[Rfam]
RNA sequence: CCCCAGAAUUGGGGUUUUGGGGGCAAGAUGCGCUUGUGUUGAAUCCAACUGGCCCACAAAGUCCCUUUUCUGGGG
Numbered sequence: 001c002c003c004c005a006g007a008a009u010u011g012g013g014g015u016u017u018u019g020g021g022g023g024c025a026a027g028a029u030g031c032g033c034u035u036g037u038g039u040u041g042a043a044u045c046c047a048a049c050u051g052g053c054c055c056a057c058a059a060a061g062u063c064c065c066u067u068u069u070c071u072g073g074g075g
Stems, first nucleotide, its partner, number of pairs: 003073006011065003015061005021055004026050002029047002

Rfam assigns this 75-nucleotide RNA sequence from Phrynocephalus forsythii to the family "mir-193 microRNA precursor family". Lineage of the source: Eukaryota > Euteleostomi > Bifurcata > Toxicofera > Phrynocephalus. It scores 72 bits against the family's covariance model. On this family, see Baev et al., Comput Biol Chem 2009: "Computational identification of novel microRNA homologs in the chimpanzee genome".